[Rfam]
A member of the RNA family "Archaeal small subunit ribosomal RNA" from Methanimicrococcus blatticola, 359 nucleotides of a longer RNA. The family has 86 seed sequences and 709 matches in Rfam 15.1. Taxonomically the source falls in Methanimicrococcus (Archaea, Methanobacteriati, Methanobacteriota, Methanomicrobia). Rfam links the family to the GO terms ribosome and structural constituent of ribosome. On this family, see Yusupov et al., Science 2001: "Crystal structure of the ribosome at 5.5 A resolution". Its Rfam clan is "SSU clan". A search with the family's covariance model found it, with a score of 1541 bits.
RNA sequence: GGUCUAAAGGGUCCGUAGCCGGUUCGGUCAGUCCAUUGGGAAAUCCGGAUGCUCAACAUCCGGGCUUCCAGUGGAUACUGCCGAACUUGGGAUCGGGGGAGGUAAGAGGUACUACAGGGGUAGGAGUGAAAUCUUGUAAUCCUUGUGGGACCACCUGUGGCGAAGGCGUCUUACCAAAACGAGUCCGACGGUGAGGGACGAAAGCUGGGGGCACGAACCGGAUUAGAUACCCGGGUAGUCCCAGCCGUAAACGAUGCUCGCUAGGUGUCAGGCAUGGCGUGACUGUGUCUGGUGCCGAAGGGAAGCCGUGAAGCGAGCCACCUGGGAAGUACGGCCGCAAGGCUGAAACUUAAAGGAAU
Numbered sequence: 001g002g003u004c005u006a007a008a009g010g011g012u013c014c015g016u017a018g019c020c021g022g023u024u025c026g027g028u029c030a031g032u033c034c035a036u037u038g039g040g041a042a043a044u045c046c047g048g049a050u051g052c053u054c055a056a057c058a059u060c061c062g063g064g065c066u067u068c069c070a071g072u073g074g075a076u077a078c079u080g081c082c083g084a085a086c087u088u089g090g091g092a093u094c095g096g097g098g099g100a101g102g103u104a105a106g107a108g109g110u111a112c113u114a115c116a117g118g119g120g121u122a123g124g125a126g127u128g129a130a131a132u133c134u135u136g137u138a139a140u141c142c143u144u145g146u147g148g149g150a151c152c153a154c155c156u157g158u159g160g161c162g163a164a165g166g167c168g169u170c171u172u173a174c175c176a177a178a179a180c181g182a183g184u185c186c187g188a189c190g191g192u193g194a195g196g197g198a199c200g201a202a203a204g205c206u207g208g209g210g211g212c213a214c215g216a217a218c219c220g221g222a223u224u225a226g227a228u229a230c231c232c233g234g235g236u237a238g239u240c241c242c243a244g245c246c247g248u249a250a251a252c253g254a255u256g257c258u259c260g261c262u263a264g265g266u267g268u269c270a271g272g273c274a275u276g277g278c279g280u281g282a283c284u285g286u287g288u289c290u291g292g293u294g295c296c297g298a299a300g301g302g303a304a305g306c307c308g309u310g311a312a313g314c315g316a317g318c319c320a321c322c323u324g325g326g327a328a329g330u331a332c333g334g335c336c337g338c339a340a341g342g343c344u345g346a347a348a349c350u351u352a353a354a355g356g357a358a359u
Stems, first nucleotide, its partner, number of pairs: 001322003009319001011199004016193001018192003022086007030079002032075009045063007090186003093182003101175007108152002112148008123134003160167002204245006213239002218234004256318006264296014300307002324351003333344004